[Rfam]
RNA sequence: ACUGUGGAGUGCUAUACAAACUGUAGUAGCUUAGGCAAAGCAGAGUACGUUGAAACAGUAA
Numbered sequence: 001a002c003u004g005u006g007g008a009g010u011g012c013u014a015u016a017c018a019a020a021c022u023g024u025a026g027u028a029g030c031u032u033a034g035g036c037a038a039a040g041c042a043g044a045g046u047a048c049g050u051u052g053a054a055a056c057a058g059u060a061a
Stems, first nucleotide, its partner, number of pairs: 001059005009048005021043003029036002
About this RNA: RAGATH-18 RNA: a 61-nucleotide sequence from Clostridium pasteurianum. Rfam's curators write: Actinobacteria, Firmicutes, Fusobacteria, Thermotogae (1 example). Taxonomically the source falls in Clostridium pasteurianum (Bacteria, Bacillati, Clostridia, Clostridiaceae). The sequence is in the family's curated seed alignment.